[Rfam]
RNA sequence: ACAGGAAAAUGACCUAUGAAUUGACAGACAGUAUGGUUGUUUGUCUGUCAUCUCUGUAGGCCAAUAUUCUGU
Dot-bracket structure: ((((((.(.((.((((.((..((((((((((.........))))))))))..))..)))).)).).))))))
Numbered sequence: 001a002c003a004g005g006a007a008a009a010u011g012a013c014c015u016a017u018g019a020a021u022u023g024a025c026a027g028a029c030a031g032u033a034u035g036g037u038u039g040u041u042u043g044u045c046u047g048u049c050a051u052c053u054c055u056g057u058a059g060g061c062c063a064a065u066a067u068u069c070u071g072u
Stems, first nucleotide, its partner, number of pairs: 001072006008065001010063002013060004018054002022050010

Annotation: Shown here is a 72-nucleotide sequence from Physeter macrocephalus, a member of the family "mir-192/215 microRNA precursor family". The match comes from Rfam's covariance-model search (76 bits). Rfam's curators write: This family represents the human microRNA (miRNA) precursors mir-192 and mir-215. Animal miRNAs are transcribed as ~70nt precursors and subsequently processed by the Dicer enzyme to give a ~22nt product. In this case the mature sequence comes from the 5' arm of the precursor. The extents of the hairpin precursors are not generally known and are estimated based on hairpin prediction. For this family Rfam cites "New microRNAs from mouse and human" (Lagos-Quintana et al., RNA, 2003).